A member of the RNA family "Eukaryotic large subunit ribosomal RNA" from Wallemia ichthyophaga, 394 nucleotides of a longer RNA. A search with the family's covariance model found it, with a score of 3323 bits.
RNA sequence: GGAAAGUUAUCGUAAUGGUAAUCGAACUUAGUACGAGAGGAACCGUUCGUUCGGAUAAUUGGUAUUUGCAGCUGUCCGAUCGGGCAAUGCUGCGAAGCUAUCAUCCGCUAGAUAAUGGCUGAACGCCUCUAAGCCAGAAUCUGUGCCAGAAACGAUGACGUUGGUCCCGCAAUAGAUAGAUAUGCUAAAAUAGGGCUUUAUGCUCGUGAGCUAUAUUAGAUAGUUUUGUGAAUUUAAUUGGAAAGAAUUAGAUUCAUUGACUAUGAAUGAUAAUUAAUGUAUUGCGGGGGUGAAUCUCUUGCAGACGACUUGAAUUGGAACGGGGUACUGUAAGCAGUAGAGUAGCCUUGUUGCUACGAUCUGCUGAGGUUCAGCCUUUGUUCUAUCGAUUUGU
Numbered sequence: 001g002g003a004a005a006g007u008u009a010u011c012g013u014a015a016u017g018g019u020a021a022u023c024g025a026a027c028u029u030a031g032u033a034c035g036a037g038a039g040g041a042a043c044c045g046u047u048c049g050u051u052c053g054g055a056u057a058a059u060u061g062g063u064a065u066u067u068g069c070a071g072c073u074g075u076c077c078g079a080u081c082g083g084g085c086a087a088u089g090c091u092g093c094g095a096a097g098c099u100a101u102c103a104u105c106c107g108c109u110a111g112a113u114a115a116u117g118g119c120u121g122a123a124c125g126c127c128u129c130u131a132a133g134c135c136a137g138a139a140u141c142u143g144u145g146c147c148a149g150a151a152a153c154g155a156u157g158a159c160g161u162u163g164g165u166c167c168c169g170c171a172a173u174a175g176a177u178a179g180a181u182a183u184g185c186u187a188a189a190a191u192a193g194g195g196c197u198u199u200a201u202g203c204u205c206g207u208g209a210g211c212u213a214u215a216u217u218a219g220a221u222a223g224u225u226u227u228g229u230g231a232a233u234u235u236a237a238u239u240g241g242a243a244a245g246a247a248u249u250a251g252a253u254u255c256a257u258u259g260a261c262u263a264u265g266a267a268u269g270a271u272a273a274u275u276a277a278u279g280u281a282u283u284g285c286g287g288g289g290g291u292g293a294a295u296c297u298c299u300u301g302c303a304g305a306c307g308a309c310u311u312g313a314a315u316u317g318g319a320a321c322g323g324g325g326u327a328c329u330g331u332a333a334g335c336a337g338u339a340g341a342g343u344a345g346c347c348u349u350g351u352u353g354c355u356a357c358g359a360u361c362u363g364c365u366g367a368g369g370u371u372c373a374g375c376c377u378u379u380g381u382u383c384u385a386u387c388g389a390u391u392u393g394u
Base pairs, nucleotide, nucleotide: 006159007158008157009156010155011154012153013152016148017147018146019145021051023049024048025047026046027045052107053106054105055104056103060100061099062098067094068093069092070091071090073086074085075084076083077082109143110142111141116136117135118134119133120132166288167287168286169285170284171283172282292392293391294390295389296388297313298312301309317384318383319382320381321380322379323377324376325375327370328369334364335363336362337361339360342357343356344355345354346353
Background
The base pairs follow the family's consensus structure, which is taken from published work.